[Rfam]
RNA sequence: UGGUAGAUGCACCCUGAUUUCGACCCCGAGGCACCCCUUCGGGGUUUUUUCU
Numbered sequence: 001u002g003g004u005a006g007a008u009g010c011a012c013c014c015u016g017a018u019u020u021c022g023a024c025c026c027c028g029a030g031g032c033a034c035c036c037c038u039u040c041g042g043g044g045u046u047u048u049u050u051c052u
Stems, first nucleotide, its partner, number of pairs: 002013003024044006030035001
A member of the RNA family "Nitrogen stress-induced RNA 1" from Synechococcales cyanobacterium M55_K2018_004, 52 nucleotides long.
Pairs were carried over by alignment from the consensus structure.
The organism belongs to Synechococcales, within Bacteria.